Shown here is a 112-nucleotide sequence from Flagellimonas nanhaiensis, a member of the family "Bacteroidete tryptophan peptide leader RNA". The family's RNA type in Rfam is cis-regulatory leader. The organism belongs to Flagellimonas, within Bacteria. Its family is annotated with regulation of gene expression and S-adenosylmethionine metabolic process in the Gene Ontology.
RNA sequence: UCCUUUCUAUCUUUGAGGCAAUGAAUAACAGAACAGUAAAUACUUGGUGGUGGAUCAACUUACGUCAAAUGUCGUGAGCUAGUCCCCAUUGUAACAAUACAAAAGGCUUGUC
Numbered sequence: 001u002c003c004u005u006u007c008u009a010u011c012u013u014u015g016a017g018g019c020a021a022u023g024a025a026u027a028a029c030a031g032a033a034c035a036g037u038a039a040a041u042a043c044u045u046g047g048u049g050g051u052g053g054a055u056c057a058a059c060u061u062a063c064g065u066c067a068a069a070u071g072u073c074g075u076g077a078g079c080u081a082g083u084c085c086c087c088a089u090u091g092u093a094a095c096a097a098u099a100c101a102a103a104a105g106g107c108u109u110g111u112c
Stems, first nucleotide, its partner, number of pairs: 036100003041093003047087001049086002052083001057080001059078003062072003